[Rfam]
A member of the RNA family "Purine riboswitch aptamer" from Clostridium tetanomorphum, 102 nucleotides long. The family's consensus secondary structure is taken from published work. NCBI's taxonomy places the organism under Bacteria, Bacillota, Clostridia, Eubacteriales, Clostridium.
RNA sequence: AAAACAAAUGUUGUUCGCACUUGUAUAUGCUGGAUAAUAUGGUUUCAGCGUUUCUACCAGGCAACCGUAAAUAGCCUGACUAUGGGUGUUUAUAUUAUGAUU
Numbered sequence: 001a002a003a004a005c006a007a008a009u010g011u012u013g014u015u016c017g018c019a020c021u022u023g024u025a026u027a028u029g030c031u032g033g034a035u036a037a038u039a040u041g042g043u044u045u046c047a048g049c050g051u052u053u054c055u056a057c058c059a060g061g062c063a064a065c066c067g068u069a070a071a072u073a074g075c076c077u078g079a080c081u082a083u084g085g086g087u088g089u090u091u092a093u094a095u096u097a098u099g100a101u102u
Stems, first nucleotide, its partner, number of pairs: 018088008029049006058078005064072001